[Rfam]
RNA sequence: UAUCUUUGCAAACUUGAAAGAAGACCUUUCAACAUACAUAACAAUCAUUUACAAUAAUAUUAGCAUG
Numbered sequence: 001u002a003u004c005u006u007u008g009c010a011a012a013c014u015u016g017a018a019a020g021a022a023g024a025c026c027u028u029u030c031a032a033c034a035u036a037c038a039u040a041a042c043a044a045u046c047a048u049u050u051a052c053a054a055u056a057a058u059a060u061u062a063g064c065a066u067g
Stems, first nucleotide, its partner, number of pairs: 014032006
S15-Flavobacteria ribosomal protein leader: a 67-nucleotide RNA. Rfam's curators put it in the seed alignment. The base pairs follow the family's consensus structure, which is taken from published work. On this family, see Eckert and Weinberg, BMC Microbiol 2020: "Discovery of 20 novel ribosomal leader candidates in bacteria and archaea".